[Rfam]
RNA: Vault RNA
Organism: Coregonus sp. 'balchen'
RNA sequence: UUGCCAGUUUAGCUCUAUGGUAACUUCGUAUGCUCAAGUUUCCACUCUUCGUCGGUUCUCGGGUUGAGGAGUCAAACCGUAGGCGCUGUCUUGCAUUUUC
Numbered sequence: 001u002u003g004c005c006a007g008u009u010u011a012g013c014u015c016u017a018u019g020g021u022a023a024c025u026u027c028g029u030a031u032g033c034u035c036a037a038g039u040u041u042c043c044a045c046u047c048u049u050c051g052u053c054g055g056u057u058c059u060c061g062g063g064u065u066g067a068g069g070a071g072u073c074a075a076a077c078c079g080u081a082g083g084c085g086c087u088g089u090c091u092u093g094c095a096u097u098u099u100c
Stems, first nucleotide, its partner, number of pairs: 002095003006091002012084003017080004025071003029067001